[Rfam]
RNA sequence: GUUCAAGAGUUGUAGCUUUCGGUACCUGGCUGGCUGCACGGCAACCCUCUUCACCGAGCGGGGUGCCCCAGGGGAAGAACCGGCAUGAACAACCGUUCGUGCAAGUCGAUGGA
Numbered sequence: 001g002u003u004c005a006a007g008a009g010u011u012g013u014a015g016c017u018u019u020c021g022g023u024a025c026c027u028g029g030c031u032g033g034c035u036g037c038a039c040g041g042c043a044a045c046c047c048u049c050u051u052c053a054c055c056g057a058g059c060g061g062g063g064u065g066c067c068c069c070a071g072g073g074g075a076a077g078a079a080c081c082g083g084c085a086u087g088a089a090c091a092a093c094c095g096u097u098c099g100u101g102c103a104a105g106u107c108g109a110u111g112g113a
Stems, first nucleotide, its partner, number of pairs: 001080004009039001011038006021031002040067003045063003049058002083102008

The family of this 113-nucleotide sequence from Brevibacterium mcbrellneri is "SAM (S-adenosyl methionine) riboswitch aptamer". The match comes from Rfam's covariance-model search (75 bits). Lineage of the source: Bacteria > Bacillati > Micrococcales > Brevibacteriaceae > Brevibacterium mcbrellneri. The family's consensus secondary structure is taken from published work. The family is grouped with related families in Rfam's "SAM clan".